[Rfam]
RNA: antisense RNA of dnaA mRNA
Organism: Oceanimonas sp. GK1
RNA sequence: UCGGGCAUCGGCCUUGCGCUCGCGAAUGCCGUUGCCCACCGCGUGCAGCAGGUGGGUCUUGCCCAGGCCGGUACCACCGUA
Numbered sequence: 001u002c003g004g005g006c007a008u009c010g011g012c013c014u015u016g017c018g019c020u021c022g023c024g025a026a027u028g029c030c031g032u033u034g035c036c037c038a039c040c041g042c043g044u045g046c047a048g049c050a051g052g053u054g055g056g057u058c059u060u061g062c063c064c065a066g067g068c069c070g071g072u073a074c075c076a077c078c079g080u081a
Base pairs, nucleotide, nucleotide: 005042006041010037011036013034016032017031018030021028051078052077053076054075056074057073061072062071063070
Dot-bracket structure: ....((...((.(..(((..(......).))).).))...))........((((.((...(((......)))))))))...